[Rfam]
RNA sequence: UAUCAGGUUGGUGCAAAGGUAAUUGUGGUUUUGCCAUUGAAAGUAAUGGCAAAAUCCACGAUUACCUUUGCACCAACCUUAUA
Numbered sequence: 001u002a003u004c005a006g007g008u009u010g011g012u013g014c015a016a017a018g019g020u021a022a023u024u025g026u027g028g029u030u031u032u033g034c035c036a037u038u039g040a041a042a043g044u045a046a047u048g049g050c051a052a053a054a055u056c057c058a059c060g061a062u063u064a065c066c067u068u069u070g071c072a073c074c075a076a077c078c079u080u081a082u083a
Stems, first nucleotide, its partner, number of pairs: 001083003005079024029054011
Background
This 83-nucleotide sequence from Piliocolobus tephrosceles belongs to the Rfam family "mir-548 microRNA precursor family". On this family, see Witten et al., BMC Biol 2010: "Ultra-high throughput sequencing-based small RNA discovery and discrete statistical biomarker analysis in a collection of cervical tumours and matched controls". The family's consensus secondary structure was predicted with WAR. Lineage of the source: Eukaryota > Euteleostomi > Haplorrhini > Cercopithecoidea > Piliocolobus.